[Rfam]
RNA sequence: GCGGAUGGCUGGAUGGUCGCGGGGAAACUCGAGGAAAGUCCGGACUCCAUGAAGAAGCGGCGCCGGGUAACGCCCGGCCAGUGAAAGCUGAGGGAUAGCGCCACAGAGAACAGACCGCCCCAUUUUUUCCGUUGGAAAAUCAAUGAGGUAAGGGUGAAACGGUGGGGUAAGAGCCCACCGCGGGACGGGUAACCGGACCGGCAUGGCAAGCCCCGCCGGGAGCAAUGCCAAAUAGGGACCGCGUGGGGCAUCCGCCCCGGGGGACUUCACUCCCAGCAGGUCCGGGUUGGCAGCAAAAACCUAUUGGUAACAAUGGGUUAAGAUGAAUGGCCAUCGGGGCGCAAGCCUUACAGAAUCCGGCUUACAGGCCAUCCGCAGUA
Numbered sequence: 001g002c003g004g005a006u007g008g009c010u011g012g013a014u015g016g017u018c019g020c021g022g023g024g025a026a027a028c029u030c031g032a033g034g035a036a037a038g039u040c041c042g043g044a045c046u047c048c049a050u051g052a053a054g055a056a057g058c059g060g061c062g063c064c065g066g067g068u069a070a071c072g073c074c075c076g077g078c079c080a081g082u083g084a085a086a087g088c089u090g091a092g093g094g095a096u097a098g099c100g101c102c103a104c105a106g107a108g109a110a111c112a113g114a115c116c117g118c119c120c121c122a123u124u125u126u127u128u129c130c131g132u133u134g135g136a137a138a139a140u141c142a143a144u145g146a147g148g149u150a151a152g153g154g155u156g157a158a159a160c161g162g163u164g165g166g167g168u169a170a171g172a173g174c175c176c177a178c179c180g181c182g183g184g185a186c187g188g189g190u191a192a193c194c195g196g197a198c199c200g201g202c203a204u205g206g207c208a209a210g211c212c213c214c215g216c217c218g219g220g221a222g223c224a225a226u227g228c229c230a231a232a233u234a235g236g237g238a239c240c241g242c243g244u245g246g247g248g249c250a251u252c253c254g255c256c257c258c259g260g261g262g263g264a265c266u267u268c269a270c271u272c273c274c275a276g277c278a279g280g281u282c283c284g285g286g287u288u289g290g291c292a293g294c295a296a297a298a299a300c301c302u303a304u305u306g307g308u309a310a311c312a313a314u315g316g317g318u319u320a321a322g323a324u325g326a327a328u329g330g331c332c333a334u335c336g337g338g339g340c341g342c343a344a345g346c347c348u349u350a351c352a353g354a355a356u357c358c359g360g361c362u363u364a365c366a367g368g369c370c371a372u373c374c375g376c377a378g379u380a
Base pairs, nucleotide, nucleotide: 001376002375003374004373005372006371007370008369009368010367011365012335013334014333015332016331017330018329020031021030022029023028036363037362038361040360041359042358043357044356045222046221047220048219054268055267056266058218059217060216061215062214063077064076065075066074067073078092079090080089081088082087093213094212098211099210100207101206102205115153116152117149118148119147121145122144123143124142161179162178163177164176165175166174180202181200182199183198186195187194188193226292227291228290229289236283237282238281239280240279260274261273262272263271299318300317301316302315303314304313305312306311
The family of this 380-nucleotide RNA from Algicella marina is "Bacterial RNase P class A". Its family is annotated with tRNA processing, dimeric ribonuclease P complex and ribonuclease P activity in the Gene Ontology. The base pairs follow the family's consensus structure, which is taken from published work. It is annotated as a ribozyme.